[Rfam]
RNA sequence: ACCGCUAAGCCAUCUCUCCAGCCUAAUAUUAAAAUUUAUUUAGGGCUGGAGAGAUGGCUUAGCGGU
Number, nucleotide and partner (000 for none) at each position: 001a000002c065003c064004g063005c062006u061007a060008a059009g058010c057011c056012a055013u054014c053015u052016c051017u050018c049019c048020a047021g046022c045023c044024u043025a000026a000027u000028a000029u000030u000031a000032a000033a000034a000035u000036u000037u000038a000039u000040u000041u000042a000043g024044g023045g022046c021047u020048g019049g018050a017051g016052a015053g014054a013055u012056g011057g010058c009059u008060u007061a006062g005063c004064g003065g002066u000